Shown here is a 133-nucleotide sequence from Kryptolebias marmoratus, a member of the family "Small nucleolar RNA SNORA44". Rfam 15.1 lists 1,056 matches to the family in 599 species.
[Rfam]
RNA sequence: UAGCAUGCUAUCCUAAGGAUCCGAGCUCCUCAUAGCUUCUGGUUCUCCAAAUGCAUGCGAGAUGAGGAUUGGGCGGUCUUUGACUGUUGAGGCCCCUCUUUGCCACCAGCAGCCACUCAGCUGCCCUACAGUG
Numbered sequence: 001u002a003g004c005a006u007g008c009u010a011u012c013c014u015a016a017g018g019a020u021c022c023g024a025g026c027u028c029c030u031c032a033u034a035g036c037u038u039c040u041g042g043u044u045c046u047c048c049a050a051a052u053g054c055a056u057g058c059g060a061g062a063u064g065a066g067g068a069u070u071g072g073g074c075g076g077u078c079u080u081u082g083a084c085u086g087u088u089g090a091g092g093c094c095c096c097u098c099u100u101u102g103c104c105a106c107c108a109g110c111a112g113c114c115a116c117u118c119a120g121c122u123g124c125c126c127u128a129c130a131g132u133g
Stems, first nucleotide, its partner, number of pairs: 014041002019037001021035001023033001071126006086113002089106001091104002
Dot-bracket structure: .............((...(.(.(.........).).)..)).............................((((((.........((.(.((..........)).).....)).......)))))).......
ACA44 is a member of the H/ACA class of snoRNA that guide the sites of modification of uridines to pseudouridines. The source organism's lineage runs through Eukaryota, Chordata, Teleostomi, Percomorphaceae and Kryptolebias. Its family is annotated with RNA processing and nucleolus in the Gene Ontology.